[Rfam]
RNA: ZMP/ZTP riboswitch aptamer (pfl RNA motif)
RNA sequence: CUGGGCACACACGACUGGCGCAGGUGGGCAACCACCGGGGAGUGAAGCCGAGAGCAUCGAACGCCUGGGUGCCCUCA
Numbered sequence: 001c002u003g004g005g006c007a008c009a010c011a012c013g014a015c016u017g018g019c020g021c022a023g024g025u026g027g028g029c030a031a032c033c034a035c036c037g038g039g040g041a042g043u044g045a046a047g048c049c050g051a052g053a054g055c056a057u058c059g060a061a062c063g064c065c066u067g068g069g070u071g072c073c074c075u076c077a
Base pairs, nucleotide, nucleotide: 004049005048006047010044011043012042015039016038017065018064019063020062024035025034026033027032054072055071056070057069058068